[Rfam]
RNA sequence: AGAGUUAAUGUUGGUAAUUGUAGAAGCGUGCUCGUCGCGAACCCUGCCAGCCCUUUUCAGGGCUGCAAUUCUACA
Numbered sequence: 001a002g003a004g005u006u007a008a009u010g011u012u013g014g015u016a017a018u019u020g021u022a023g024a025a026g027c028g029u030g031c032u033c034g035u036c037g038c039g040a041a042c043c044c045u046g047c048c049a050g051c052c053c054u055u056u057u058c059a060g061g062g063c064u065g066c067a068a069u070u071c072u073a074c075a
Stems, first nucleotide, its partner, number of pairs: 013044002015040001019075007026038003048065007

Rfam assigns this 75-nucleotide RNA from Parnassius apollo to the family "Mammalian CPEB3 ribozyme". The base pairs follow the family's consensus structure, which is taken from published work. The mammalian CPEB3 ribozyme is a self cleaving RNA located in the second intron of the CPEB3 gene which belongs to a family of genes regulating messenger RNA polyadenylation.